[Rfam]
RNA sequence: GAUGUCCUUGUCUUAGGGGAGCAUAAUACCCCGUGAUCGUUUAGUGAGGGUGUUGAUGCUGAAACCCGUUAUUUAAAAGAUAACCGCAUCCGGAUCUAUUCCGAGAUGCAAUUUUUGUAGGG
Numbered sequence: 001g002a003u004g005u006c007c008u009u010g011u012c013u014u015a016g017g018g019g020a021g022c023a024u025a026a027u028a029c030c031c032c033g034u035g036a037u038c039g040u041u042u043a044g045u046g047a048g049g050g051u052g053u054u055g056a057u058g059c060u061g062a063a064a065c066c067c068g069u070u071a072u073u074u075a076a077a078a079g080a081u082a083a084c085c086g087c088a089u090c091c092g093g094a095u096c097u098a099u100u101c102c103g104a105g106a107u108g109c110a111a112u113u114u115u116u117g118u119a120g121g122g
Stems, first nucleotide, its partner, number of pairs: 005019005021059004025054007038044001086109005092102003
RNA: U4atac minor spliceosomal RNA
Organism: Harpegnathos saltator